About this RNA: The record is a 118-nucleotide RNA from Papaver nudicaule, which matches "U5 spliceosomal RNA" in Rfam. Rfam classes the family as a spliceosomal small nuclear RNA. The base pairs follow the family's consensus structure, which is taken from published work. A search with the family's covariance model found it, with a score of 67 bits. U5 RNA is a component of both types of known spliceosome. The precise function of this molecule is unknown, though it is known that the 5' loop is required for splice site selection and p220 binding, and that both the 3' stem-loop and the Sm site are important for Sm protein binding and cap methylation.

RNA sequence: CAGCCGUGCGGUAAGCACAAAGCGAACUAUUCUUUCGCCUUUUACUAAAGAAUACCGUGUGCUUGCCGGCUAAUUUAUUCCAUGGAAACACUCUCAUCUUUUUGUAUUGUACUGAAAA
Numbered sequence: 001c002a003g004c005c006g007u008g009c010g011g012u013a014a015g016c017a018c019a020a021a022g023c024g025a026a027c028u029a030u031u032c033u034u035u036c037g038c039c040u041u042u043u044a045c046u047a048a049a050g051a052a053u054a055c056c057g058u059g060u061g062c063u064u065g066c067c068g069g070c071u072a073a074u075u076u077a078u079u080c081c082a083u084g085g086a087a088a089c090a091c092u093c094u095c096a097u098c099u100u101u102u103u104g105u106a107u108u109g110u111a112c113u114g115a116a117a118a
Stems, first nucleotide, its partner, number of pairs: 004085003009068011028054008